[Rfam]
This 74-nucleotide sequence from Crocodylus porosus belongs to the Rfam family "Mammalian CPEB3 ribozyme". Pairs were carried over by alignment from the consensus structure, which is taken from published work.

RNA sequence: UCACAAUUUCAAGGCCAUAGCAGAAGCAUUCAUGGUGCAGUCUGUCAGAUUCCAAUGAAUCUUCAAAUUCUAUU
Numbered sequence: 001u002c003a004c005a006a007u008u009u010c011a012a013g014g015c016c017a018u019a020g021c022a023g024a025a026g027c028a029u030u031c032a033u034g035g036u037g038c039a040g041u042c043u044g045u046c047a048g049a050u051u052c053c054a055a056u057g058a059a060u061c062u063u064c065a066a067a068u069u070c071u072a073u074u
Stems, first nucleotide, its partner, number of pairs: 013042003019074002022071004026038003047062006